A member of the RNA family "mir-5 microRNA precursor family" from Musca domestica, 69 nucleotides long. The base pairs follow the family's consensus structure, which was predicted with RNAalifold. Lineage of the source: Eukaryota > Mandibulata > Muscomorpha > Muscini > Musca. On this family, see Stark et al., Genome Res 2007: "Systematic discovery and characterization of fly microRNAs using 12 Drosophila genomes".

RNA sequence: AUAAAAGGAACGAUCGUUGUGAUAUGUUUCUUUUUUAUAGACAUAUCACAGUGAUUUUCCUUUAUAUUG
Numbered sequence: 001a002u003a004a005a006a007g008g009a010a011c012g013a014u015c016g017u018u019g020u021g022a023u024a025u026g027u028u029u030c031u032u033u034u035u036u037a038u039a040g041a042c043a044u045a046u047c048a049c050a051g052u053g054a055u056u057u058u059c060c061u062u063u064a065u066a067u068u069g
Stems, first nucleotide, its partner, number of pairs: 004063007012056015